Background:
A member of the RNA family "mraW RNA" from Corynebacterium freneyi, 100 nucleotides long. It scores 66 bits against the family's covariance model. By type it is a cis-regulatory element. Rfam 15.1 lists 851 matches to the family in 821 species.
[Rfam]
RNA sequence: GACGGGAGCGUCCGCAAGGACUCUGUCCGAACCGACCCUGGUGUACUUCCCCGAUACCAGGUCCGGUUCGGGCAGGGCCCUGUGCACGCGCCCCGCGGAU
Numbered sequence: 001g002a003c004g005g006g007a008g009c010g011u012c013c014g015c016a017a018g019g020a021c022u023c024u025g026u027c028c029g030a031a032c033c034g035a036c037c038c039u040g041g042u043g044u045a046c047u048u049c050c051c052c053g054a055u056a057c058c059a060g061g062u063c064c065g066g067u068u069c070g071g072g073c074a075g076g077g078c079c080c081u082g083u084g085c086a087c088g089c090g091c092c093c094c095g096c097g098g099a100u
Base pairs, nucleotide, nucleotide: 010087011086013084014083015082016081018080019079021077022076023075024074025073026072027071028070029069030068031067032066033065034064037061038060039059040058041057042056043055044054